[Rfam]
RNA sequence: GGAGGUUUAGAUCCUGACUGGGGGGCAGAAGGAGAACCCAUGGAAGGCUGACUUGAAGGCCCCUCCUCUCUGUACCCACAGGACUUUGGCCUGG
Numbered sequence: 001g002g003a004g005g006u007u008u009a010g011a012u013c014c015u016g017a018c019u020g021g022g023g024g025g026c027a028g029a030a031g032g033a034g035a036a037c038c039c040a041u042g043g044a045a046g047g048c049u050g051a052c053u054u055g056a057a058g059g060c061c062c063c064u065c066c067u068c069u070c071u072g073u074a075c076c077c078a079c080a081g082g083a084c085u086u087u088g089g090c091c092u093g094g
Base pairs, nucleotide, nucleotide: 003092004091005090006089007088009086010085012083013082014081015080016079019078020077021076022075025073026072027071028070029069030067031066032065033064034063037058039055040054042052